[Rfam]
RNA sequence: CAUUGCCACGGUGAUGGUGUUCACCCUAACAAACCGCCCUGUCUGGCUGAUAACACCUGGUGAUUC
Numbered sequence: 001c002a003u004u005g006c007c008a009c010g011g012u013g014a015u016g017g018u019g020u021u022c023a024c025c026c027u028a029a030c031a032a033a034c035c036g037c038c039c040u041g042u043c044u045g046g047c048u049g050a051u052a053a054c055a056c057c058u059g060g061u062g063a064u065u066c
Base pairs, nucleotide, nucleotide: 010025011024012023013022016057017056018055019054020053021052036047037046038045

Fluoride riboswitch aptamer (crcB RNA motif): a 66-nucleotide sequence from Celerinatantimonas diazotrophica. The base pairs follow the family's consensus structure, which is taken from published work. The match comes from Rfam's covariance-model search (39 bits). The organism belongs to Celerinatantimonas, within Bacteria.